[Rfam]
RNA sequence: UGGGCCGGACAGCCGUGGAUCUGCGGCAGGAAUGAUAGGCCCGCCCGCGGCCGAGCUCUACA
Number, nucleotide and partner (000 for none) at each position: 001u043002g042003g041004g040005c039006c038007g036008g000009a000010c000011a000012g027013c026014c025015g024016u023017g000018g000019a000020u000021c000022u000023g016024c015025g014026g013027c012028a000029g000030g000031a000032a000033u000034g000035a000036u007037a000038g006039g005040c004041c003042c002043g001044c000045c000046c000047g000048c000049g000050g000051c000052c000053g000054a000055g000056c000057u000058c000059u000060a000061c000062a000
The family of this 62-nucleotide RNA from Pyrobaculum oguniense is "Pyrobaculum sRNA 210".
Gene Ontology term of the family: RNA processing.
Rfam's curators write: Non canonical pseudouridylation guide sRNA features. Predicted to target tRNALys U54 in Pyrobaculum.
By type it is an H/ACA-box small nucleolar RNA.
It is one of the family's seed sequences.
On this family, see Bernick et al., RNA 2012: "Discovery of Pyrobaculum small RNA families with atypical pseudouridine guide RNA features".